Shown here is a 35-nucleotide sequence, a member of the family "L31-Firmicutes ribosomal protein leader". Rfam's curators put it in the seed alignment.

RNA sequence: CUCCGCCGACAAUACAUGCGGCGGGGCGGAAAGAG
Numbered sequence: 001c002u003c004c005g006c007c008g009a010c011a012a013u014a015c016a017u018g019c020g021g022c023g024g025g026g027c028g029g030a031a032a033g034a035g
Base pairs, nucleotide, nucleotide: 001026002025003024004023005022006021007020008019
Dot-bracket structure: ((((((((..........)))))))).........